[Rfam]
RNA sequence: UGGUCAUCCGAGGGGCGCCCGUUCGCGGGCUGAGACGGCGUUGCGGCCGGACCCUUUGAACCUGAUCCGGGUCAUGCCGGCGAAGGGACGGGACCUCGCGGCAGG
Dot-bracket structure: ......((((((((.((((((....)))))......(((......))))..)))).....(((...((((......))))...)))..)))).............

A member of the RNA family "TPP riboswitch aptamer (THI element)" from Hansschlegelia zhihuaiae, 105 nucleotides long. On this family, see Welz and Breaker, RNA 2007: "Ligand binding and gene control characteristics of tandem riboswitches in Bacillus anthracis". The source organism's lineage runs through Bacteria, Alphaproteobacteria, Hyphomicrobiales, Methylopilaceae and Hansschlegelia. Gene Ontology term of the family: thiamine pyrophosphate binding.